[Rfam]
RNA sequence: UCGUGCUAGAUGGGGAGGUAGCGGUGCCCUGUAACCUGCAACCCGCUGUAGCAGGAUUGAAUUCCUGUUGGAGGCAUGAUGUUUGUAGAGCCUGCCCUAAAUAAGUGGUGAGGAUAAUUGGGUCCUACGCAACGGGAACUUAUGAACCCCGCCAGGUCCGGAAGGAAGCAACGGUAAGUAAGACCUCUCGUGUGCCGUAGGGGUGCCUGGUUUGAGCUAACUGUUUAGGUUACGUCUAUGUCAUUAUGUCGAUGACAGGUGCACGA
Numbered sequence: 001u002c003g004u005g006c007u008a009g010a011u012g013g014g015g016a017g018g019u020a021g022c023g024g025u026g027c028c029c030u031g032u033a034a035c036c037u038g039c040a041a042c043c044c045g046c047u048g049u050a051g052c053a054g055g056a057u058u059g060a061a062u063u064c065c066u067g068u069u070g071g072a073g074g075c076a077u078g079a080u081g082u083u084u085g086u087a088g089a090g091c092c093u094g095c096c097c098u099a100a101a102u103a104a105g106u107g108g109u110g111a112g113g114a115u116a117a118u119u120g121g122g123u124c125c126u127a128c129g130c131a132a133c134g135g136g137a138a139c140u141u142a143u144g145a146a147c148c149c150c151g152c153c154a155g156g157u158c159c160g161g162a163a164g165g166a167a168g169c170a171a172c173g174g175u176a177a178g179u180a181a182g183a184c185c186u187c188u189c190g191u192g193u194g195c196c197g198u199a200g201g202g203g204u205g206c207c208u209g210g211u212u213u214g215a216g217c218u219a220a221c222u223g224u225u226u227a228g229g230u231u232a233c234g235u236c237u238a239u240g241u242c243a244u245u246a247u248g249u250c251g252a253u254g255a256c257a258g259g260u261g262c263a264c265g266a
Stems, first nucleotide, its partner, number of pairs: 001266006009058003012030004017025001019023001035055005064259007073250005079244003083240001085239005094230001097228006105221002107218003116212008124201006130192002133190005139182005149174003157166003
Record summary
A member of the RNA family "Bacterial large signal recognition particle RNA" from Paramaledivibacter caminithermalis, 266 nucleotides long. Its family is annotated with signal recognition particle, plasma membrane targeting and SRP-dependent cotranslational protein targeting to membrane, signal sequence recognition in the Gene Ontology. A search with the family's covariance model found it, with a score of 221 bits.